[Rfam]
RNA sequence: CGGAAGUGCCUUGCUGAUCGCGCCUGGUGAAAGCCUCAAGAACUCCCACCAUCACAGGUAACAAGGCACUUCCUCGUUUCCCCGAAACGCUAUCCACAAGGCGCCAGUCGGUGGAUCAAG
Number, nucleotide and partner (000 for none) at each position: 001c000002g073003g072004a071005a070006g069007u068008g067009c066010c065011u064012u063013g062014c000015u061016g000017a059018u000019c057020g000021c000022g000023c000024c000025u051026g050027g049028u048029g000030a000031a000032a044033g043034c000035c000036u000037c000038a000039a000040g000041a000042a000043c033044u032045c000046c000047c000048a028049c027050c026051a025052u000053c000054a000055c000056a000057g019058g000059u017060a000061a015062c013063a012064a011065g010066g009067c008068a007069c006070u005071u004072c003073c002074u000075c000076g000077u000078u000079u000080c000081c000082c000083c000084g000085a000086a000087a000088c000089g000090c000091u000092a000093u000094c000095c000096a000097c000098a000099a000100g000101g000102c000103g117104c114105c113106a112107g000108u000109c000110g000111g000112u106113g105114g104115a000116u000117c103118a000119a000120g000
The record is a 120-nucleotide RNA from Streptomyces sp. GS7, which matches "Actinobacteria sRNA Ms_IGR-7" in Rfam. Rfam classes the family as a small RNA. The pairing is the family consensus, mapped onto this sequence. Rfam 15.1 lists 463 matches to the family in 194 species.